[Rfam]
RNA sequence: UUUUAGCCCCGAUAGUAGCGGCAUCCUUUGGGUUCUUUCUUUAAGAACCUAAAGAUAGAGCGGAUAGCGGGAUUGGCU
Numbered sequence: 001u002u003u004u005a006g007c008c009c010c011g012a013u014a015g016u017a018g019c020g021g022c023a024u025c026c027u028u029u030g031g032g033u034u035c036u037u038u039c040u041u042u043a044a045g046a047a048c049c050u051a052a053a054g055a056u057a058g059a060g061c062g063g064a065u066a067g068c069g070g071g072a073u074u075g076g077c078u
Stems, first nucleotide, its partner, number of pairs: 009070003013066002018061002023056003029051008
Shown here is a 78-nucleotide RNA from Flavobacterium crassostreae, a member of the family "Flavo-1 RNA". Rfam 15.1 lists 7,497 matches to the family in 411 species. Lineage of the source: Bacteria > Flavobacteriia > Flavobacteriales > Flavobacteriaceae > Flavobacterium. Rfam classes the family as a small RNA.